[Rfam]
RNA sequence: GGCUGGUCUGAUGGUGGGUUAUCAGAACUUAUUAACAUUAGUGUCACUAAAGUUGGUAUACCACCACCCCCCCACUGCUAAAUUUAACUGGCUUAAA
Numbered sequence: 001g002g003c004u005g006g007u008c009u010g011a012u013g014g015u016g017g018g019u020u021a022u023c024a025g026a027a028c029u030u031a032u033u034a035a036c037a038u039u040a041g042u043g044u045c046a047c048u049a050a051a052g053u054u055g056g057u058a059u060a061c062c063a064c065c066a067c068c069c070c071c072c073c074a075c076u077g078c079u080a081a082a083u084u085u086a087a088c089u090g091g092c093u094u095a096a097a
Base pairs, nucleotide, nucleotide: 001093002092003091004090005089006088007087010085011084012080013076014075015074016073017072018071030058031057032056034054035053

A member of the RNA family "Y RNA" from Cavia porcellus, 97 nucleotides long.
The match comes from Rfam's covariance-model search (41 bits).
The base pairs follow the family's consensus structure, which is taken from published work.
From the family's description: Y RNAs are components of the Ro ribonucleoprotein particle (Ro RNP), in association with Ro60 and La proteins. The Y RNAs and Ro60 and La proteins are well conserved, but the function of the Ro RNP is not known. In humans the RNA component can be one of four small RNAs -- hY1, hY3, hY4 and hY5. These small RNAs are predicted to fold into a conserved secondary structure containing three stem structures.
By type it is a non-coding RNA gene.
Rfam 15.1 lists 26,986 matches to the family in 650 species.
NCBI's taxonomy places the organism under Eukaryota, Metazoa, Eumetazoa, Rodentia, Cavia.